[Rfam]
Rfam assigns this 96-nucleotide RNA from Nicotiana sylvestris to the family "MIR6152 microRNA precursor family".
The family's consensus secondary structure was predicted with RNAalifold.
Taxonomically the source falls in Nicotiana (Eukaryota, Viridiplantae, Embryophyta, Mesangiospermae).

RNA sequence: UGGAUAAAUUAUUGUAUUCGACUGUAUUCACGGCGUGAAAAAGGGGAUGACGCUGUUUUAAAAGGGAAAGUGAAUCAAUUAACAUAAUAAACUCCU
Numbered sequence: 001u002g003g004a005u006a007a008a009u010u011a012u013u014g015u016a017u018u019c020g021a022c023u024g025u026a027u028u029c030a031c032g033g034c035g036u037g038a039a040a041a042a043g044g045g046g047a048u049g050a051c052g053c054u055g056u057u058u059u060a061a062a063a064g065g066g067a068a069a070g071u072g073a074a075u076c077a078a079u080u081a082a083c084a085u086a087a088u089a090a091a092c093u094c095c096u
Base pairs, nucleotide, nucleotide: 002095003094004093009090010089011088012087013086014085015084017082018081020080021079023077024076026075027074028073029072030071031070034065036063037059038058039057040056042054043053